[Rfam]
RNA: mir-8517 microRNA precursor family
RNA sequence: AGGACGCUUUAGCUAUUGAACUGUUUUGUCAUUCCAUGACAGAGAACAAUUUGUUAUUUGACAGAGAGUGAAAAAAAAGUUUAAUAGCUAAAGCGUCCGUCCAC
Numbered sequence: 001a002g003g004a005c006g007c008u009u010u011a012g013c014u015a016u017u018g019a020a021c022u023g024u025u026u027u028g029u030c031a032u033u034c035c036a037u038g039a040c041a042g043a044g045a046a047c048a049a050u051u052u053g054u055u056a057u058u059u060g061a062c063a064g065a066g067a068g069u070g071a072a073a074a075a076a077a078a079g080u081u082u083a084a085u086a087g088c089u090a091a092a093g094c095g096u097c098c099g100u101c102c103a104c
Stems, first nucleotide, its partner, number of pairs: 002098001007093016024076001025065007045055004